[Rfam]
RNA sequence: AGCUCUUCGGACAUGACACAACAUCCUGCUGCGAUGUUGUGUGGCCUGCAGUGUCAGUCCGAAGCAGCG
Dot-bracket structure: ..(.((.(((((.......((((((.......))))))....(((.......))).)))))....)).)
bZIP non canonical Hac1/Xbp1 intron: a 69-nucleotide RNA from Heterodermia speciosa.
bZIP intron RNA is a non-canonical intron that was first reported in HAC1 gene in yeast and XBP1 gene in Metazoa.
On this family, see Hooks and Griffiths-Jones, RNA Biol 2011: "Conserved RNA structures in the non-canonical Hac1/Xbp1 intron".
The organism belongs to Heterodermia, within Eukaryota.
Pairs were carried over by alignment from the consensus structure, which was predicted with RNAfold.
It scores 42 bits against the family's covariance model.
It is annotated as a small RNA.